[Rfam]
RNA: Plastid-psbM 3UTR RNA
Nucleotides: 083
Base pairs, nucleotide, nucleotide: 006047007046008045009044010043011042012041013040014039015038016037017036019034020033021032022031023030024029
Number, partner (000 for none) and nucleotide at each position: 001000g002000a003000u004000c005000c006047g007046a008045g009044a010043g011042u012041a013040u014039g015038g016037u017036a018000a019034g020033a021032a022031a023030g024029a025000c026000a027000u028000u029024u030023c031022u032021u033020u034019c035000u036017u037016a038015c039014c040013a041012u042011a043010c044009u045008c046007u047006c048000u049000a050000u051000u052000a053000g054000u055000g056000u057000u058000a059000u060000a061000g062000u063000a064000u065000u066000g067000u068000a069000u070000a071000a072000a073000a074000u075000u076000g077000c078000a079000c080000u081000u082000g083000a